[Rfam]
Nucleotides: 160
Stems, first nucleotide, its partner, number of pairs: 020046005026040002028037001055085005064074001066072002086101005104150007118135004123130002
Number, partner (000 for none) and nucleotide at each position: 001000u002000a003000a004000a005000g006000g007000c008000g009000a010000a011000u012000a013000g014000c015000g016000c017000a018000a019000g020046c021045g022044c023043u024042g025000g026040g027039a028037a029000g030000a031000g032000a033000c034000a035000g036000c037028u038000u039027u040026c041000a042024c043023a044022g045021u046020g047000g048000a049000c050000g051000a052000g053000g054000u055085a056084g057083a058082g059081g060000a061000g062000u063000a064074u065000c066072g067071a068000a069000a070000u071067u072066c073000a074064g075000c076000g077000g078000a079000u080000g081059c082058c083057u084056c085055u086101c087100g088099g089098c090097u091000a092000g093000c094000u095000u096000c097090a098089g099088u100087c101086g102000u103000a104150g105149a106148a107147g108146u109145a110144g111000a112000g113000c114000a115000a116000a117000a118135c119134a120133c121132c122000a123130a124129g125000g126000u127000a128000a129124c130123u131000g132121g133120g134119u135118g136000c137000a138000c139000a140000a141000a142000g143000g144110c145109u146108a147107c148106u149105u150104u151000c152000a153000g154000a155000a156000g157000c158000a159000a160000c